RNA: S15-Flavobacteria ribosomal protein leader
Organism: Aequorivita viscosa
RNA sequence: UACUUUUGCAGCCUUGAUUACAAUCCCGAAGCCGUCGGGAGUAUUCAAUACAUAAAAAUCAUUUUAAUAAUAUUGGCAUG
Numbered sequence: 001u002a003c004u005u006u007u008g009c010a011g012c013c014u015u016g017a018u019u020a021c022a023a024u025c026c027c028g029a030a031g032c033c034g035u036c037g038g039g040a041g042u043a044u045u046c047a048a049u050a051c052a053u054a055a056a057a058a059u060c061a062u063u064u065u066a067a068u069a070a071u072a073u074u075g076g077c078a079u080g
Stems, first nucleotide, its partner, number of pairs: 015047003019043002